Rfam assigns this 103-nucleotide RNA sequence from Kalanchoe fedtschenkoi to the family "Small nucleolar RNA Z279/snoR105/snoR108". It is annotated as a C/D-box small nucleolar RNA. Rfam's curators write: This family includes the plant snoRNAs known as Z279, snoR105 and snoR108. The source organism's lineage runs through Eukaryota, Spermatophyta, eudicotyledons, Saxifragales and Kalanchoe.
[Rfam]
RNA sequence: GGGAUAUGAUGAGAGGUCAGUUCACGCAUGUCAGUUGUGAAAGGGCGUCCGCCCCCAGCCUGUUACGACAGAUUGGGCGCCCCCAUCAAACCUAUCUGAUCCC
Numbered sequence: 001g002g003g004a005u006a007u008g009a010u011g012a013g014a015g016g017u018c019a020g021u022u023c024a025c026g027c028a029u030g031u032c033a034g035u036u037g038u039g040a041a042a043g044g045g046c047g048u049c050c051g052c053c054c055c056c057a058g059c060c061u062g063u064u065a066c067g068a069c070a071g072a073u074u075g076g077g078c079g080c081c082c083c084c085a086u087c088a089a090a091c092c093u094a095u096c097u098g099a100u101c102c103c
Stems, first nucleotide, its partner, number of pairs: 001103004014093004021041005043082007060075001062073002
Its family is annotated with nucleolus and RNA processing in the Gene Ontology.